This 86-nucleotide sequence from Clostridiales bacterium PH28_bin88 belongs to the Rfam family "c-di-GMP-I riboswitch aptamer". Lineage of the source: Bacteria > Bacillati > Bacillota > Clostridia > Eubacteriales.
RNA sequence: AAUUAAUUUUGGCAAACCCGUCGAAAGACGGGGGCGCAAAGCCAUGGGUCUGUAGCCGAUAAGGCCAUGAUCGCCAGGUUGCCGGU
Numbered sequence: 001a002a003u004u005a006a007u008u009u010u011g012g013c014a015a016a017c018c019c020g021u022c023g024a025a026a027g028a029c030g031g032g033g034g035c036g037c038a039a040a041g042c043c044a045u046g047g048g049u050c051u052g053u054a055g056c057c058g059a060u061a062a063g064g065c066c067a068u069g070a071u072c073g074c075c076a077g078g079u080u081g082c083c084g085g086u
Stems, first nucleotide, its partner, number of pairs: 012037002017032006040080004045076003048071003055065003
About this RNA
The literature on the family includes a 2007 paper in Nucleic Acids Res by Weinberg et al., "Identification of 22 candidate structured RNAs in bacteria using the CMfinder comparative genomics pipeline".